Alphaproteobacteria transfer-messenger RNA: a 357-nucleotide RNA from Paracoccus sp. S-4012. For this family Rfam cites "Phylogenetic analysis of tmRNA secondary structure" (Williams and Bartel, RNA, 1996). Rfam describes the family as follows. Bacterial tmRNA, also known as 10Sa RNA or SsrA, is named for its dual tRNA and mRNA-like properties. Its role is to liberate the mRNA from a stalled ribosome. To accomplish this part of the tmRNA is used as a reading frame that ends in a translation stop signal. The family is grouped with related families in Rfam's "tRNA clan". Lineage of the source: Bacteria > Pseudomonadota > Rhodobacterales > Paracoccaceae > Paracoccus. It is annotated as a non-coding RNA gene.
RNA sequence: GCCCUUGCCAGAGGCCUACGCCGGCCCUAGAUUGAUCCUGCCCGGAGCAAUCCGGGCUAUGGGCAUAAACGCGCACGUAAUAGACGGAUCGGACCCGGGGGCGGUACCCGGCGGCUCCACCAAAGCACCCUCGUUGGGGGACCAUGGGGCCGAAACAGGAUCGACGGACGUUCAAAGGUGUUGGCUUUGUCCCGGUGAGGUACCACCGUUAUCGGUCCGAAAAGUACAGUUGCCAACGACAACCGUGCUCCGGUCGCUCUGGCUGCGUAAGCAGCUCGGGUAACCGAAAACUGAAGUCCUGACGCUUAGCCGCGGCAGGCGGGGCCCCCAGGCGCCUGGCAACAGAAGCCUGGGACU
Dot-bracket structure: .......................................(((((((....)))))))...(((((.....((((((........((..(((...(((((.......)))))(((((((...........................)))))))............))).)).......))))..))..)))))((((..[[.[[[)))).....]]]]].......................................................................................................[[[[..((((((]]]]..........))))))....